RNA sequence: GUUUUACUAGGAGUUCUCUUCAAACACUUCACGUGGAGCUUUGCAUUGAUACAAAACUUUAGAAUCACGUGAAGUGUUUAGGAGAACUCUAGGUGGCAC
Numbered sequence: 001g002u003u004u005u006a007c008u009a010g011g012a013g014u015u016c017u018c019u020u021c022a023a024a025c026a027c028u029u030c031a032c033g034u035g036g037a038g039c040u041u042u043g044c045a046u047u048g049a050u051a052c053a054a055a056a057c058u059u060u061a062g063a064a065u066c067a068c069g070u071g072a073a074g075u076g077u078u079u080a081g082g083a084g085a086a087c088u089c090u091a092g093g094u095g096g097c098a099c
Stems, first nucleotide, its partner, number of pairs: 005095004011089010022079015

Background
Shown here is a 99-nucleotide sequence from Zizania palustris, a member of the family "mir-395 microRNA precursor family". The family's consensus secondary structure was predicted with PFOLD. Rfam links the family to the GO terms RISC complex and miRNA-mediated post-transcriptional gene silencing. From the family's description: mir-395 was identified in both Arabidopsis thaliana and Oryza sativa computationally and was later experimentally verified. mir-395 is thought to target mRNAs coding for ATP sulphurylases. The mature sequence is excised from the 3' arm of the hairpin. The literature on the family includes a 2004 paper in Mol Cell by Jones-Rhoades and Bartel, "Computational Identification of Plant MicroRNAs and Their Targets, Including a Stress-Induced miRNA". The family has 25 seed sequences and 2,798 matches in Rfam 15.1. Lineage of the source: Eukaryota > Streptophytina > Magnoliopsida > Oryzoideae > Zizania. The match comes from Rfam's covariance-model search (77 bits).